This 79-nucleotide sequence from Alligator mississippiensis belongs to the Rfam family "Mammalian CPEB3 ribozyme". The family's consensus secondary structure is taken from published work.
RNA sequence: AGAGGUCCCAAACUCGAGGUCAUAGCAGAAGCACUCACGGCAUGGCCUGUCAGAUUCCAACGAAUCUGCAAAUUCUGCU
Dot-bracket structure: .................[[[[..((((((((...........)]]]]...(((((((....)))))))....)))))))